[Rfam]
RNA sequence: CUAUAUAUACCCUGUAGAACCGAAUGUGUGUUUACAUUUUACAUUCACAGAUUCGGUUUUAGGGGAGUAUAUGAA
Numbered sequence: 001c002u003a004u005a006u007a008u009a010c011c012c013u014g015u016a017g018a019a020c021c022g023a024a025u026g027u028g029u030g031u032u033u034a035c036a037u038u039u040u041a042c043a044u045u046c047a048c049a050g051a052u053u054c055g056g057u058u059u060u061a062g063g064g065g066a067g068u069a070u071a072u073g074a075a
Stems, first nucleotide, its partner, number of pairs: 002073006010065003016060010027049004
This 75-nucleotide sequence from Carassius auratus belongs to the Rfam family "mir-10 microRNA precursor family". NCBI's taxonomy places the organism under Eukaryota, Deuterostomia, Clupeocephala, Ostariophysi, Carassius. A search with the family's covariance model found it, with a score of 66 bits. For this family Rfam cites "An extensive class of small RNAs in Caenorhabditis elegans" (Lee and Ambros, Science, 2001). The base pairs follow the family's consensus structure, which was predicted with PFOLD.